[Rfam]
RNA sequence: UUGGCAUGAUGAGGAAGACAAUUGGCGUCUGAUCUAUUUGAUGAUAAAAUCCUCCUACUCAUUCUGA
Numbered sequence: 001u002u003g004g005c006a007u008g009a010u011g012a013g014g015a016a017g018a019c020a021a022u023u024g025g026c027g028u029c030u031g032a033u034c035u036a037u038u039u040g041a042u043g044a045u046a047a048a049a050u051c052c053u054c055c056u057a058c059u060c061a062u063u064c065u066g067a
Base pairs, nucleotide, nucleotide: 006062007061008060009059026043029040
RNA: Small nucleolar RNA Z105
Organism: Triticum urartu